The family of this 308-nucleotide RNA from Aquimarina atlantica is "Bacterial RNase P class A". By type it is a ribozyme. NCBI's taxonomy places the organism under Bacteria, Pseudomonadati, Bacteroidota, Flavobacteriia, Aquimarina. The base pairs follow the family's consensus structure, which is taken from published work.
RNA sequence: AAAGCAGAUCACCUUAUCGCUCUCGAUGAUUCGGGGGAGGAAAGUCCGGACACCAUAGCACAGUAUAGCGGGUAACGCCCGUCCGUCGUAAGGCGAGGACAAGUGCAGCAGAAAGUAUGUACAGGUAAUGCUGUAGUGAAACCAGGUAAACUCUAUACGGUGCAACGCCAUGUAAACCAGCUUUUGAGGGUUGUGCGCCCAAUGUUGGAGGGUAGGCGGUUUGAGCUGAUAAGUAAUUAUUAGUCUAGAUAAAUGAUAAGGACCCGAUAUAUCGGGAAACAGAAUCCGGCUUAUGAUCUGCUUUUUUU
Number, nucleotide and partner (000 for none) at each position: 001a304002a303003a302004g301005c300006a299007g298008a297009u296010c295011a294012c261013c260014u259015u258016a257017u256018c255019g000020c037021u036022c035023u034024c033025g032026a031027u000028g000029a000030u000031u026032c025033g024034g023035g022036g021037g020038a000039g000040g000041a000042a292043a291044g290045u000046c289047c288048g287049g286050a285051c162052a161053c160054c159055a000056u000057a000058g196059c195060a194061c193062a000063g158064u157065a156066u155067a154068g082069c081070g080071g079072g078073u000074a000075a000076c000077g000078c072079c071080c070081g069082u068083c097084c095085g094086u093087c092088g000089u000090a000091a000092g087093g086094c085095g084096a000097g083098g153099a152100c000101a000102a000103g151104u150105g147106c146107a000108g000109c000110a000111g000112a000113a000114a000115g000116u000117a000118u000119g000120u135121a134122c133123a132124g131125g000126u000127a000128a000129u000130g000131c124132u123133g122134u121135a120136g000137u000138g000139a000140a000141a000142c000143c000144a000145g000146g106147u105148a000149a000150a104151c103152u099153c098154u067155a066156u065157a064158c063159g054160g053161u052162g051163c000164a000165a000166c218167g217168c216169c215170a000171u000172g000173u000174a000175a000176a000177c208178c207179a206180g205181c204182u000183u000184u000185u000186g000187a000188g200189g199190g198191u197192u000193g061194u060195g059196c058197g191198c190199c189200c188201a000202a000203u000204g181205u180206u179207g178208g177209a000210g000211g000212g000213u000214a000215g169216g168217c167218g166219g000220u000221u000222u000223g000224a000225g244226c243227u242228g241229a240230u239231a238232a237233g000234u000235a000236a000237u232238u231239a230240u229241u228242a227243g226244u225245c000246u000247a000248g000249a000250u000251a000252a000253a000254u000255g018256a017257u016258a015259a014260g013261g012262a000263c000264c000265c000266g000267a000268u000269a000270u000271a000272u000273c000274g000275g000276g000277a000278a000279a000280c000281a000282g000283a000284a000285u050286c049287c048288g047289g046290c044291u043292u042293a000294u011295g010296a009297u008298c007299u006300g005301c004302u003303u002304u001305u000306u000307u000308u000